[Rfam]
RNA sequence: CUCUCCGAAAUAUAUUGAGGUAUAGCCUCAGGAGUUUACUUGCGGAGGUAGAGCACUGACAGGGCUAGGGGGCUUACCCGCUUACCAAACCCUUUCAAACUCCGAAUGCCGUAAGUUGAGAUCCUGGGAGUCAGACCGCGGGUGAUAAGGUUCGUGGUCGAGAGGGAAAGAGCCCAGACCGACAGCUAAGGCCCCCAAAUCCAUACUAAGUGGGAAAGGAGGUGAAGUCGCUUAGACAGCCAGGAGGUUGGCUUAGAAGCAGCCACCCUUAAAAGAAAGCGUAAUAGCUCACUGGUCUAGCGACUUUGCGCCGAAAAUGUAACGGGGCUAAGUAUGGUGCCGAAGCUUCGGAAUCAGGUUAAUACCUGGUUGGUAGGAGAGCGUUCCCAUCCGGGAUGAAGGUAGAUUGGAAAGUCUGCUGGACUGAUGGGAAGUGAAUAU
Number, nucleotide and partner (000 for none) at each position: 001c381002u380003c379004u378005c377006c376007g000008a000009a000010a000011u024012a023013u022014a021015u020016u000017g000018a000019g000020g015021u014022a013023u012024a011025g000026c130027c128028u127029c126030a125031g124032g123033a122034g000035u000036u121037u000038a116039c115040u114041u113042g112043c111044g110045g109046a000047g000048g000049u000050a000051g103052a101053g100054c000055a000056c000057u097058g096059a095060c000061a093062g092063g091064g090065c000066u000067a000068g086069g085070g083071g082072g081073c080074u000075u000076a000077c000078c000079c000080g073081c072082u071083u070084a000085c069086c068087a000088a000089a000090c064091c063092c062093u061094u000095u059096c058097a057098a000099a000100c053101u052102c000103c051104g000105a000106a000107u000108g000109c045110c044111g043112u042113a041114a040115g039116u038117u000118g000119a000120g000121a036122u033123c032124c031125u030126g029127g028128g027129a000130g026131u000132c000133a000134g159135a158136c157137c156138g155139c154140g153141g152142g151143u150144g000145a000146u000147a000148a000149g000150g143151u142152u141153c140154g139155u138156g137157g136158u135159c134160g000161a000162g000163a000164g175165g174166g173167a000168a000169a000170g000171a000172g000173c166174c165175c164176a000177g000178a000179c351180c350181g349182a348183c000184a347185g346186c345187u000188a000189a000190g341191g340192c339193c000194c000195c000196c000197a000198a000199a338200u000201c337202c336203a335204u334205a333206c332207u000208a000209a000210g000211u000212g000213g000214g000215a000216a000217a000218g312219g311220a000221g000222g309223u308224g307225a306226a305227g304228u303229c302230g301231c300232u000233u000234a000235g000236a000237c000238a000239g296240c295241c294242a293243g292244g000245a269246g268247g267248u000249u000250g264251g263252c262253u000254u000255a000256g000257a000258a000259g000260c000261a000262g252263c251264c250265a000266c000267c247268c246269u245270u274271a000272a000273a000274a270275g290276a000277a000278a000279g288280c287281g000282u000283a000284a000285u000286a000287g280288c279289u000290c275291a000292c243293u242294g241295g240296u239297c000298u000299a000300g231301c230302g229303a228304c227305u226306u225307u224308g223309c222310g000311c219312c218313g000314a000315a000316a000317a000318u000319g000320u000321a000322a000323c000324g000325g000326g000327g000328c000329u000330a000331a000332g206333u205334a204335u203336g202337g201338u199339g192340c191341c190342g000343a000344a000345g186346c185347u184348u182349c181350g180351g179352a371353a370354u369355c368356a367357g366358g365359u364360u000361a000362a000363u000364a359365c358366c357367u356368g355369g354370u353371u352372g000373g000374u000375a000376g006377g005378a004379g003380a002381g001382c436383g000384u433385u432386c431387c430388c429389a428390u427391c000392c426393g425394g424395g000396a000397u000398g000399a000400a000401g420402g419403u418404a417405g416406a415407u414408u413409g000410g000411a000412a000413a408414g407415u406416c405417u404418g403419c402420u401421g000422g000423a000424c394425u393426g392427a390428u389429g388430g387431g386432a385433a384434g000435u000436g382437a000438a000439u000440a000441u000